[Rfam]
This 131-nucleotide RNA sequence from Pipistrellus kuhlii belongs to the Rfam family "Small nucleolar RNA SNORA51". Its family is annotated with RNA processing and nucleolus in the Gene Ontology. By type it is an H/ACA-box small nucleolar RNA. A search with the family's covariance model found it, with a score of 120 bits. From the family's description: ACA51 is a member of the H/ACA class of snoRNA that guide the sites of modification of uridines to pseudouridines. The source organism's lineage runs through Eukaryota, Eumetazoa, Sarcopterygii, Boreoeutheria and Pipistrellus.

RNA sequence: GGCCUCCUGGUGCUUACCACAGGCUGUGCCAUUACACUGACUACACAGAAAUAGGAGGCCAACUAAACCUACCCCAUAUACACCUAGUUCAGGCCCUUUGCCUAGUCUGUAUUGUGAAUGGGGAGACAUUG
Numbered sequence: 001g002g003c004c005u006c007c008u009g010g011u012g013c014u015u016a017c018c019a020c021a022g023g024c025u026g027u028g029c030c031a032u033u034a035c036a037c038u039g040a041c042u043a044c045a046c047a048g049a050a051a052u053a054g055g056a057g058g059c060c061a062a063c064u065a066a067a068c069c070u071a072c073c074c075c076a077u078a079u080a081c082a083c084c085u086a087g088u089u090c091a092g093g094c095c096c097u098u099u100g101c102c103u104a105g106u107c108u109g110u111a112u113u114g115u116g117a118a119u120g121g122g123g124a125g126a127c128a129u130u131g
Base pairs, nucleotide, nucleotide: 002059003058004057005056006055007054008053021042022041026037027036028035072123073122074121075120076119077118085109086108087107089105091103092102093101094100